[Rfam]
RNA sequence: UUCAUAUUAUAGUAACCAACAUAUUCAAUACUUUCAAAUGAAGAUGCCAAUUAUUUUUCUUCAUUUGAAAGUAUUGAAUAUGUUGGUUACUAUAAUAUGAA
Numbered sequence: 001u002u003c004a005u006a007u008u009a010u011a012g013u014a015a016c017c018a019a020c021a022u023a024u025u026c027a028a029u030a031c032u033u034u035c036a037a038a039u040g041a042a043g044a045u046g047c048c049a050a051u052u053a054u055u056u057u058u059c060u061u062c063a064u065u066u067g068a069a070a071g072u073a074u075u076g077a078a079u080a081u082g083u084u085g086g087u088u089a090c091u092a093u094a095a096u097a098u099g100a101a
Stems, first nucleotide, its partner, number of pairs: 002100043
Rfam assigns this 101-nucleotide RNA sequence from Arabidopsis thaliana to the family "MIR5649 microRNA precursor family". Rfam links the family to the GO terms RISC complex and miRNA-mediated post-transcriptional gene silencing. Taxonomically the source falls in Arabidopsis (Eukaryota, Tracheophyta, Brassicales, Brassicaceae). The base pairs follow the family's consensus structure, which was predicted with RNAalifold.